A member of the RNA family "MIR390 microRNA precursor family" from Cicer arietinum, 99 nucleotides long.
[Rfam]
RNA sequence: CAAGAGACUCUUUAAAGCUCAGGAGGGAUAGCGCCGCUUAUAUCUAUAUAUUUAUAUGGUAAUUGGCGCUAUCCAUCCUGAGUUUUAUGGAUUCUUUUU
Numbered sequence: 001c002a003a004g005a006g007a008c009u010c011u012u013u014a015a016a017g018c019u020c021a022g023g024a025g026g027g028a029u030a031g032c033g034c035c036g037c038u039u040a041u042a043u044c045u046a047u048a049u050a051u052u053u054a055u056a057u058g059g060u061a062a063u064u065g066g067c068g069c070u071a072u073c074c075a076u077c078c079u080g081a082g083u084u085u086u087a088u089g090g091a092u093u094c095u096u097u098u099u
Stems, first nucleotide, its partner, number of pairs: 010090001016084009026074010

It scores 90 bits against the family's covariance model. The source organism's lineage runs through Eukaryota, Magnoliopsida, Hologalegina, Cicereae and Cicer.